[Rfam]
RNA sequence: GAUAGUGAUGAUAUAUCUGGAAUCUCGUUCGUCUGAAAUGCUGUUGAGAAAUAGAAAUCUGAUGGCA
Numbered sequence: 001g002a003u004a005g006u007g008a009u010g011a012u013a014u015a016u017c018u019g020g021a022a023u024c025u026c027g028u029u030c031g032u033c034u035g036a037a038a039u040g041c042u043g044u045u046g047a048g049a050a051a052u053a054g055a056a057a058u059c060u061g062a063u064g065g066c067a
Base pairs, nucleotide, nucleotide: 023049024048025047026046027045030043031042033040
RNA: Small nucleolar RNA SNORD30
Organism: Mastacembelus armatus